[Rfam]
RNA sequence: CAAUAGCCUCGAUAGAAGCGGCAUCCUUUUACGCAACGAUAGUGGCGUAAAAGAUAAAGCGGAUAGCGAGAUAAAGC
Numbered sequence: 001c002a003a004u005a006g007c008c009u010c011g012a013u014a015g016a017a018g019c020g021g022c023a024u025c026c027u028u029u030u031a032c033g034c035a036a037c038g039a040u041a042g043u044g045g046c047g048u049a050a051a052a053g054a055u056a057a058a059g060c061g062g063a064u065a066g067c068g069a070g071a072u073a074a075a076g077c
Stems, first nucleotide, its partner, number of pairs: 009069003013065002018060002023055003029050006036043001

The record is a 77-nucleotide RNA sequence from Flavobacterium sp. NKUCC04_CG, which matches "Flavo-1 RNA" in Rfam. The family's RNA type in Rfam is small RNA. The family's consensus secondary structure is taken from published work. The source organism's lineage runs through Bacteria, Pseudomonadati, Bacteroidota, Flavobacteriales and Flavobacterium.